[Rfam]
RNA sequence: UGCAAGUAUUUUACAAUUCAGAAGCAAUUGCUUCUUGUACAAAUUGUGUAUUAAUUU
Numbered sequence: 001u002g003c004a005a006g007u008a009u010u011u012u013a014c015a016a017u018u019c020a021g022a023a024g025c026a027a028u029u030g031c032u033u034c035u036u037g038u039a040c041a042a043a044u045u046g047u048g049u050a051u052u053a054a055u056u057u
Base pairs, nucleotide, nucleotide: 018037020035021034022033023032024031025030

The family of this 57-nucleotide RNA from Gossypium mustelinum is "Plastid-rps18 3UTR RNA". About the family: Plastid rps18 is a non-coding RNA (ncRNA) present in plastids. It was identified as a short stem-loop motif in the 3 prime untranslate region (3UTR) of rps18 gene. A reference for the family is Richter et al. (2023), "Retrograde signaling in plants: A critical review focusing on the GUN pathway and beyond", Plant Commun. A search with the family's covariance model found it, with a score of 73 bits. Rfam 15.1 lists 1,462 matches to the family in 409 species.